[Rfam]
A member of the RNA family "Qrr RNA" from Vibrio genomosp. F6, 92 nucleotides long. Rfam links the family to the GO term quorum sensing. The match comes from Rfam's covariance-model search (71 bits). This family represents a set of small RNAs (the Qrr RNAs) that are thought to be involved in the regulation of quorum sensing in Vibrio species. It is believed that these RNAs, guided by a protein, Hfq, can mediate the destabilisation of the quorum-sensing master regulators LuxR/HapR mRNAs. It is annotated as a small RNA.
RNA sequence: UGGCCUUCGGGUCACCUAGCCAACUGACGUUGUUAGUGAAGUUAUUCUUCACGAAUUAAAGCCAGCAGAAUCUUUCUACUGGCUAUUUUUUU
Numbered sequence: 001u002g003g004c005c006u007u008c009g010g011g012u013c014a015c016c017u018a019g020c021c022a023a024c025u026g027a028c029g030u031u032g033u034u035a036g037u038g039a040a041g042u043u044a045u046u047c048u049u050c051a052c053g054a055a056u057u058a059a060a061g062c063c064a065g066c067a068g069a070a071u072c073u074u075u076c077u078a079c080u081g082g083c084u085a086u087u088u089u090u091u092u
Stems, first nucleotide, its partner, number of pairs: 001014005030059003036052006062082004067077003